This 162-nucleotide sequence from Vigna radiata belongs to the Rfam family "Small nucleolar RNA snoR2/U65".
On this family, see Shaw et al., J Cell Sci 1998: "Localization and processing from a polycistronic precursor of novel snoRNAs in maize".
Pairs were carried over by alignment from the consensus structure, which was predicted with WAR.
It scores 107 bits against the family's covariance model.
RNA sequence: GAUCCAAUGCCACGUCGCAGAUAGCUUGAAUUAAGCAGUGACCAGUGAUGCUAUGAUUGGACCAAAAUCAAAAGUGAAUUUCGUUUGUUUCGCAUUCUGAUAGGAAUAUGUGGGUUUCAUACUUUAUGAUCUGUCUCGGAGCCGUUUUAUGCGAUUACAUUU
Numbered sequence: 001g002a003u004c005c006a007a008u009g010c011c012a013c014g015u016c017g018c019a020g021a022u023a024g025c026u027u028g029a030a031u032u033a034a035g036c037a038g039u040g041a042c043c044a045g046u047g048a049u050g051c052u053a054u055g056a057u058u059g060g061a062c063c064a065a066a067a068u069c070a071a072a073a074g075u076g077a078a079u080u081u082c083g084u085u086u087g088u089u090u091c092g093c094a095u096u097c098u099g100a101u102a103g104g105a106a107u108a109u110g111u112g113g114g115u116u117u118c119a120u121a122c123u124u125u126a127u128g129a130u131c132u133g134u135c136u137c138g139g140a141g142c143c144g145u146u147u148u149a150u151g152c153g154a155u156u157a158c159a160u161u162u
Base pairs, nucleotide, nucleotide: 003061004060005059006058007057008056009054013050014049015048016047017046018045020043022041024036025035026034090154091153092152093151094150103143104142109138110137112132113131114130115129116128